[Rfam]
RNA sequence: ACUUGGAGCAAGGAUGGGGUUAGGUGCAUUCGAGUAUGUCCUCGGGUAGUCGGAUAUUCGAGUCCCUGCUCCCAGCCAACCUAGACA
Numbered sequence: 001a002c003u004u005g006g007a008g009c010a011a012g013g014a015u016g017g018g019g020u021u022a023g024g025u026g027c028a029u030u031c032g033a034g035u036a037u038g039u040c041c042u043c044g045g046g047u048a049g050u051c052g053g054a055u056a057u058u059c060g061a062g063u064c065c066c067u068g069c070u071c072c073c074a075g076c077c078a079a080c081c082u083a084g085a086c087a
Stems, first nucleotide, its partner, number of pairs: 012077002015074005021068004026064001028063010042053004